[Rfam]
RNA sequence: GGCGGGCCUCCCCGCAUGACAGCCCUGCGAAUCUGGUCAGGUCCGGAAGGAAGCAGCCACAGUGGGUCGUUGUCAGUGCCGGGGCUCCGGCUCGCCACU
Numbered sequence: 001g002g003c004g005g006g007c008c009u010c011c012c013c014g015c016a017u018g019a020c021a022g023c024c025c026u027g028c029g030a031a032u033c034u035g036g037u038c039a040g041g042u043c044c045g046g047a048a049g050g051a052a053g054c055a056g057c058c059a060c061a062g063u064g065g066g067u068c069g070u071u072g073u074c075a076g077u078g079c080c081g082g083g084g085c086u087c088c089g090g091c092u093c094g095c096c097a098c099u
Stems, first nucleotide, its partner, number of pairs: 004093005010084005015076001017075006024066005034059004042051003
Rfam assigns this 99-nucleotide sequence from Betaproteobacteria bacterium SCN1 to the family "Bacterial small signal recognition particle RNA". It scores 75 bits against the family's covariance model. Taxonomically the source falls in Betaproteobacteria (Bacteria, Pseudomonadati, Pseudomonadota).